About this RNA:
This 76-nucleotide RNA sequence from Aedes aegypti belongs to the Rfam family "mir-965 microRNA precursor family".
RNA sequence: UUCUGAAGGGGGAAAUCCUGUACGCUGUAUGUUGUAUUUGAAUAAUCCAUAAGCGUAUAGCUUUUCCCAUUCGGCG
Numbered sequence: 001u002u003c004u005g006a007a008g009g010g011g012g013a014a015a016u017c018c019u020g021u022a023c024g025c026u027g028u029a030u031g032u033u034g035u036a037u038u039u040g041a042a043u044a045a046u047c048c049a050u051a052a053g054c055g056u057a058u059a060g061c062u063u064u065u066c067c068c069a070u071u072c073g074g075c076g
Stems, first nucleotide, its partner, number of pairs: 003074005010068003014064002018060005025053002028051004
Notes: Lineage of the source: Eukaryota > Altocrustacea > Hexapoda > Neoptera > Stegomyia. Rfam's curators put it in the seed alignment. Its family is annotated with miRNA-mediated post-transcriptional gene silencing and RISC complex in the Gene Ontology.